Rfam assigns this 69-nucleotide RNA from Cebus imitator to the family "mir-492 microRNA precursor family". A search with the family's covariance model found it, with a score of 80 bits. The source organism's lineage runs through Eukaryota, Amniota, Eutheria, Primates and Cebus.
[Rfam]
RNA sequence: ACCAUCCAGGACCUGCGGGACAAGAUUCUUGGUGCCACCAUUGAUAACUCCAGGAUUGUCCUGCAAAUC
Number, nucleotide and partner (000 for none) at each position: 001a000002c000003c000004a000005u000006c000007c000008a000009g000010g069011a068012c000013c000014u065015g064016c063017g062018g061019g060020a059021c058022a057023a056024g000025a000026u000027u055028c054029u053030u052031g051032g050033u000034g048035c000036c000037a000038c000039c000040a000041u000042u000043g000044a000045u000046a000047a000048c034049u000050c032051c031052a030053g029054g028055a027056u023057u022058g021059u020060c019061c018062u017063g016064c015065a014066a000067a000068u011069c010